Shown here is a 178-nucleotide RNA from Vagococcus salmoninarum, a member of the family "Listeria sRNA rli28". Lineage of the source: Bacteria > Bacilli > Lactobacillales > Enterococcaceae > Vagococcus.
RNA sequence: GAGCUUAUGUUAUACUAGUAGCGUAGAAAAGUGAAAAGAUGGUGGCUAAUCUCUUGAAAAAGGGGUGAUGCCUAUGAUUAUAGAUGUGACUCCUAGAAAGGAAUAACAUGUCAGUAUACGAAGCACUGACGUUGGCAGUUAGUUUUGCCAUGUUGGUGAUUGUUAUAUUGAAAUUUAA
Numbered sequence: 001g002a003g004c005u006u007a008u009g010u011u012a013u014a015c016u017a018g019u020a021g022c023g024u025a026g027a028a029a030a031g032u033g034a035a036a037a038g039a040u041g042g043u044g045g046c047u048a049a050u051c052u053c054u055u056g057a058a059a060a061a062g063g064g065g066u067g068a069u070g071c072c073u074a075u076g077a078u079u080a081u082a083g084a085u086g087u088g089a090c091u092c093c094u095a096g097a098a099a100g101g102a103a104u105a106a107c108a109u110g111u112c113a114g115u116a117u118a119c120g121a122a123g124c125a126c127u128g129a130c131g132u133u134g135g136c137a138g139u140u141a142g143u144u145u146u147g148c149c150a151u152g153u154u155g156g157u158g159a160u161u162g163u164u165a166u167a168u169u170g171a172a173a174u175u176u177a178a
Stems, first nucleotide, its partner, number of pairs: 042151005061094006070087002110130003114126002117123001157172001